[Rfam]
RNA sequence: ACCCAGACCAAGUCCAGGAAUAUGGUGCCUCAGAGCUGGAUGGGUCAUGUGCUUAACCAAAACAAGAUCUCUUUCUCUCCAACACUGUGGCCAACUCAUGAUUCUCAUGACCUAUGCUUGGAGAUAUCUUGGCUAGGAGUUGGAGGGCUUCUGACUUUGCCAGCCACUGCUAG
Numbered sequence: 001a002c003c004c005a006g007a008c009c010a011a012g013u014c015c016a017g018g019a020a021u022a023u024g025g026u027g028c029c030u031c032a033g034a035g036c037u038g039g040a041u042g043g044g045u046c047a048u049g050u051g052c053u054u055a056a057c058c059a060a061a062a063c064a065a066g067a068u069c070u071c072u073u074u075c076u077c078u079c080c081a082a083c084a085c086u087g088u089g090g091c092c093a094a095c096u097c098a099u100g101a102u103u104c105u106c107a108u109g110a111c112c113u114a115u116g117c118u119u120g121g122a123g124a125u126a127u128c129u130u131g132g133c134u135a136g137g138a139g140u141u142g143g144a145g146g147g148c149u150u151c152u153g154a155c156u157u158u159g160c161c162a163g164c165c166a167c168u169g170c171u172a173g
Stems, first nucleotide, its partner, number of pairs: 011171003017165002025158001027156001030154006046087002052137004060073002074126001076124004096110006111146003115142002118139002
RNA: Hovlinc ribozyme (hominin vlincRNA-located)
Organism: Sus scrofa